The record is an 89-nucleotide RNA from Bucorvus abyssinicus, which matches "Small nucleolar RNA SNORD70" in Rfam. NCBI's taxonomy places the organism under Eukaryota, Euteleostomi, Tetrapoda, Aves, Bucorvus. Rfam's curators write: snoRNA HBII-234 belongs to the C/D family of snoRNAs. It is the human orthologue of the mouse MBII-234 and is predicted to guide 2'O-ribose methylation of the small 18S rRNA on position A512. It is hosted, together with HBII-95, by the core C/D box snoRNA protein encoding gene NOP5/NOP58. It scores 86 bits against the family's covariance model. For this family Rfam cites "RNomics: an experimental approach that identifies 201 candidates for novel, small, non-messenger RNAs in mouse" (Huttenhofer et al., EMBO J, 2001). The pairing is the family consensus, mapped onto this sequence.

RNA sequence: UAGCCUGUUGUCCAUGAUGUAUUCUUGUUGAAGCUGAGUAUAGCUGAUCUGAGUCAACAUUUCGUCACUACCACUGAGACAACAGGCAG
Numbered sequence: 001u002a003g004c005c006u007g008u009u010g011u012c013c014a015u016g017a018u019g020u021a022u023u024c025u026u027g028u029u030g031a032a033g034c035u036g037a038g039u040a041u042a043g044c045u046g047a048u049c050u051g052a053g054u055c056a057a058c059a060u061u062u063c064g065u066c067a068c069u070a071c072c073a074c075u076g077a078g079a080c081a082a083c084a085g086g087c088a089g
Stems, first nucleotide, its partner, number of pairs: 001089001003087010